[Rfam]
Shown here is a 93-nucleotide sequence from Beutenbergia cavernae, a member of the family "SAM riboswitch aptamer (S box leader)". The match comes from Rfam's covariance-model search (59 bits). Pairs were carried over by alignment from the consensus structure, which is taken from published work. Lineage of the source: Bacteria > Micrococcales > Beutenbergiaceae > Beutenbergia > Beutenbergia cavernae.

Nucleotides: 093
Stems, first nucleotide, its partner, number of pairs: 001093001004090005013043005021032003026081004044073004049069002051065001053063002077085001
Number, partner (000 for none) and nucleotide at each position: 001093c002000g003000a004090c005089c006088a007087u008086c009000c010000a011000g012000a013043g014042c015041a016040g017039c018000c019000g020000a021032g022031a023030g024000a025000c026081c027080u028079g029078g030023c031022u032021c033000g034000a035000c036000g037000a038000c039017g040016c041015u042014g043013c044073a045072g046071c047070a048000a049069c050068c051065c052000c053063c054062c055000g056000u057000c058000c059000g060000c061000g062054g063053g064000u065051g066000a067000g068050g069049g070047u071046g072045c073044u074000a075000c076000c077085g078029c079028c080027a081026g082000g083000a084000c085077c086008g087007a088006u089005g090004g091000a092000g093001g